[Rfam]
RNA sequence: AGCACCUAAAAGCGUUUUCUUGCCAGCUCGUUUAAAUGCUCUUGAAAAUCGUAGAUGUGUGCCAGAGCAAUCCUCACGAUAGCAAAGGAUUUGAGUUUUUGGAUAACUCUAAUCCGUUUACAUUGUGAACAGCC
Numbered sequence: 001a002g003c004a005c006c007u008a009a010a011a012g013c014g015u016u017u018u019c020u021u022g023c024c025a026g027c028u029c030g031u032u033u034a035a036a037u038g039c040u041c042u043u044g045a046a047a048a049u050c051g052u053a054g055a056u057g058u059g060u061g062c063c064a065g066a067g068c069a070a071u072c073c074u075c076a077c078g079a080u081a082g083c084a085a086a087g088g089a090u091u092u093g094a095g096u097u098u099u100u101g102g103a104u105a106a107c108u109c110u111a112a113u114c115c116g117u118u119u120a121c122a123u124u125g126u127g128a129a130c131a132g133c134c
Stems, first nucleotide, its partner, number of pairs: 002062004006057001012052003015048005022039002025037001074128007084119003088115001089113003094108004
Background
The family of this 134-nucleotide RNA from Drosophila kikkawai is "Small nucleolar RNA psi28S-3316". Rfam's curators write: psi28S-3316 is a member of the H/ACA class of snoRNA. This family is responsible for guiding the modification of uridine 3316 in Drosophila 28S rRNA to pseudouridine. The family has 33 seed sequences and 85 matches in Rfam 15.1. Gene Ontology terms of the family: nucleolus and RNA processing. Lineage of the source: Eukaryota > Metazoa > Muscomorpha > Cyclorrhapha > Sophophora.